[Rfam]
RNA sequence: GUGACACCCUUAUGAGACAAUACUUGCUUCAGUGGAGCUUUGGUGCUCACUGUGUUUGCCCCUUGAGUGUGUCCCU
Numbered sequence: 001g002u003g004a005c006a007c008c009c010u011u012a013u014g015a016g017a018c019a020a021u022a023c024u025u026g027c028u029u030c031a032g033u034g035g036a037g038c039u040u041u042g043g044u045g046c047u048c049a050c051u052g053u054g055u056u057u058g059c060c061c062c063u064u065g066a067g068u069g070u071g072u073c074c075c076u
Base pairs, nucleotide, nucleotide: 001075003073004072005071006070007069009067010066011065012064014062016060018058019057022055023054030052031051032050033049034048035047037044038043
Dot-bracket structure: (.(((((.((((.(.(.((..((......((((((.((....))..)))))).)).)).).).)))).))))).).
Annotation
mir-9229 microRNA precursor family: a 76-nucleotide RNA from Pipistrellus kuhlii. Gene Ontology terms of the family: miRNA-mediated post-transcriptional gene silencing and RISC complex.